This 200-nucleotide RNA from Dichanthelium oligosanthes belongs to the Rfam family "MIR1435 microRNA precursor family". Gene Ontology terms of the family: RISC complex and miRNA-mediated post-transcriptional gene silencing. The match comes from Rfam's covariance-model search (101 bits).
[Rfam]
RNA sequence: UUGGUUUGUCUGAAGUCAAAUUUGCUAAACUUUGACCAUGUUUAUAGAAAAAUAUAAUAACCACCAUGCUACCAAACAUAUGCACUAUCAAAAUAUAUUCCAUGGUGGAUUCAAUGAAACAAAUUUGGUAUUAUAAAUAUCGUUAUAGUUUUCUAUAAACAUGGUCAAAGUUUAGCAAGUUUGACUUUAGACAAACCAAA
Numbered sequence: 001u002u003g004g005u006u007u008g009u010c011u012g013a014a015g016u017c018a019a020a021u022u023u024g025c026u027a028a029a030c031u032u033u034g035a036c037c038a039u040g041u042u043u044a045u046a047g048a049a050a051a052a053u054a055u056a057a058u059a060a061c062c063a064c065c066a067u068g069c070u071a072c073c074a075a076a077c078a079u080a081u082g083c084a085c086u087a088u089c090a091a092a093a094u095a096u097a098u099u100c101c102a103u104g105g106u107g108g109a110u111u112c113a114a115u116g117a118a119a120c121a122a123a124u125u126u127g128g129u130a131u132u133a134u135a136a137a138u139a140u141c142g143u144u145a146u147a148g149u150u151u152u153c154u155a156u157a158a159a160c161a162u163g164g165u166c167a168a169a170g171u172u173u174a175g176c177a178a179g180u181u182u183g184a185c186u187u188u189a190g191a192c193a194a195a196c197c198a199a200a
Base pairs, nucleotide, nucleotide: 005195006194007193008192009191011189012188013187014186015185016184017183018182019181020180021179022178023177024176025175026174031169032168033167034166035165045155046154047153048152049151050150051149053148055145056144057143060140066134067133068132072128073127074126075125076124